[Rfam]
Nucleotides: 104
Stems, first nucleotide, its partner, number of pairs: 035090009048059004063080004
Number, partner (000 for none) and nucleotide at each position: 001000g002000g003000c004000g005000c006000u007000u008000c009000a010000g011000g012000u013000g014000g015000c016000u017000c018000u019000g020000g021000g022000g023000c024000g025000a026000a027000a028000g029000u030000a031000c032000u033000g034000a035090c036089g037088a038087c039086a040085g041084a042083c043082c044000a045000g046000a047000a048059g049058c050057g051056g052000g053000a054000a055000g056051c057050c058049g059048u060000g061000g062000u063080g064079u065078u066077g067000a068000u069000g070000u071000g072000u073000g074000a075000u076000a077066c078065a079064a080063c081000c082043g083042g084041u085040c086039u087038g088037u089036c090035g091000c092000a093000a094000c095000g096000u097000c098000g099000u100000g101000c102000c103000u104000g
Shown here is a 104-nucleotide RNA from Dendroctonus ponderosae, a member of the family "Insertion sequence IS1222 ribosomal frameshifting element". Taxonomically the source falls in Dendroctonus (Eukaryota, Allotriocarida, Eumetabola, Curculionoidea). About the family: This family represents the insertion sequence IS1222 ribosomal frameshifting element. The element stimulates frameshifting which is known to be required for transposition. The family's consensus secondary structure is taken from published work. A reference for the family is Mejlhede et al. (2004), "-1 frameshifting at a CGA AAG hexanucleotide site is required for transposition of insertion sequence IS1222", J Bacteriol.